mir-544 microRNA precursor family: a 98-nucleotide RNA from Ailuropoda melanoleuca. The match comes from Rfam's covariance-model search (67 bits). Its family is annotated with RISC complex and miRNA-mediated post-transcriptional gene silencing in the Gene Ontology. The base pairs follow the family's consensus structure, which was predicted with RNAalifold.
RNA sequence: AUCACCAGUGGAUCUCAUUAAAAUGCAGAUUCUGACUCAGUGCCUCUUGAGUAAGGUGUGAGAUUCUGCAUUUCUAACGAGCUUCCAGGUGAUACUUA
Numbered sequence: 001a002u003c004a005c006c007a008g009u010g011g012a013u014c015u016c017a018u019u020a021a022a023a024u025g026c027a028g029a030u031u032c033u034g035a036c037u038c039a040g041u042g043c044c045u046c047u048u049g050a051g052u053a054a055g056g057u058g059u060g061a062g063a064u065u066c067u068g069c070a071u072u073u074c075u076a077a078c079g080a081g082c083u084u085c086c087a088g089g090u091g092a093u094a095c096u097u098a
Stems, first nucleotide, its partner, number of pairs: 003091003010084002014081003018077003021073003025069005031063003